[Rfam]
RNA sequence: UGCGUAGCGCGUGUUUCAUGACAAUGUUCGGAAAGGACACGCCUUUAAGGCGCGCGGUGCGGAUGUAUUGUGCCGUCAUCACCUCGGUCAUCGAGGCACGGGUCAUCCGGGCGAUAUACCCCAUGCCAUACAAAGCGAUCGUCAGGACCGGUAAGAAGAAAUUCUCGAAGGUCGGGUUC
Numbered sequence: 001u002g003c004g005u006a007g008c009g010c011g012u013g014u015u016u017c018a019u020g021a022c023a024a025u026g027u028u029c030g031g032a033a034a035g036g037a038c039a040c041g042c043c044u045u046u047a048a049g050g051c052g053c054g055c056g057g058u059g060c061g062g063a064u065g066u067a068u069u070g071u072g073c074c075g076u077c078a079u080c081a082c083c084u085c086g087g088u089c090a091u092c093g094a095g096g097c098a099c100g101g102g103u104c105a106u107c108c109g110g111g112c113g114a115u116a117u118a119c120c121c122c123a124u125g126c127c128a129u130a131c132a133a134a135g136c137g138a139u140c141g142u143c144a145g146g147a148c149c150g151g152u153a154a155g156a157a158g159a160a161a162u163u164c165u166c167g168a169a170g171g172u173c174g175g176g177u178u179c
Stems, first nucleotide, its partner, number of pairs: 006139001008137003012133001015130001016128001021124001028123001030121002038113001040111001042109001046105001048103001051100002054097001055075008082096005145179003148175005154165004